[Rfam]
The record is a 126-nucleotide RNA sequence from Rhizobium tibeticum, which matches "Alphaproteobacterial sRNA ar35" in Rfam. Taxonomically the source falls in Rhizobium (Bacteria, Alphaproteobacteria, Hyphomicrobiales, Rhizobiaceae). The match comes from Rfam's covariance-model search (46 bits).

RNA sequence: ACGGGUCCGCCGCUUGAGCUACACUCCAACCCAUCAUGUUUCUGACGCUGACCACGGAUGAAUUGGCAGCUGUUAUUGAGGCAAGUCGAGAAGGGUCGGCGCUGAGAGGUGCCGGCCUUUUUCUUU
Numbered sequence: 001a002c003g004g005g006u007c008c009g010c011c012g013c014u015u016g017a018g019c020u021a022c023a024c025u026c027c028a029a030c031c032c033a034u035c036a037u038g039u040u041u042c043u044g045a046c047g048c049u050g051a052c053c054a055c056g057g058a059u060g061a062a063u064u065g066g067c068a069g070c071u072g073u074u075a076u077u078g079a080g081g082c083a084a085g086u087c088g089a090g091a092a093g094g095g096u097c098g099g100c101g102c103u104g105a106g107a108g109g110u111g112c113c114g115g116c117c118u119u120u121u122u123c124u125u126u
Stems, first nucleotide, its partner, number of pairs: 003032004035085001037083005044074004049068002052066003088123012101110003